[Rfam]
RNA sequence: CGCCCCGAGGAGCGCUGCAACAGGGCCGCCGGCCCUGCCAGGCUCGGGGAUGGCGCCCCAUCGUUCCAACGGCGCUCAGCGAAA
Numbered sequence: 001c002g003c004c005c006c007g008a009g010g011a012g013c014g015c016u017g018c019a020a021c022a023g024g025g026c027c028g029c030c031g032g033c034c035c036u037g038c039c040a041g042g043c044u045c046g047g048g049g050a051u052g053g054c055g056c057c058c059c060a061u062c063g064u065u066c067c068a069a070c071g072g073c074g075c076u077c078a079g080c081g082a083a084a
Base pairs, nucleotide, nucleotide: 003049004048005047006046007045008044021037022036023035024034025033026032

Rfam assigns this 84-nucleotide sequence from Alkalilimnicola ehrlichii to the family "SAH (S-adenosyl-L-homocysteine) riboswitch aptamer". Rfam links the family to the GO terms S-adenosylhomocysteine metabolic process and regulation of gene expression. On this family, see Wang et al., Mol Cell 2008: "Riboswitches that sense S-adenosylhomocysteine and activate genes involved in coenzyme recycling". The organism belongs to Alkalilimnicola ehrlichii, within Bacteria. Pairs were carried over by alignment from the consensus structure, which is taken from published work.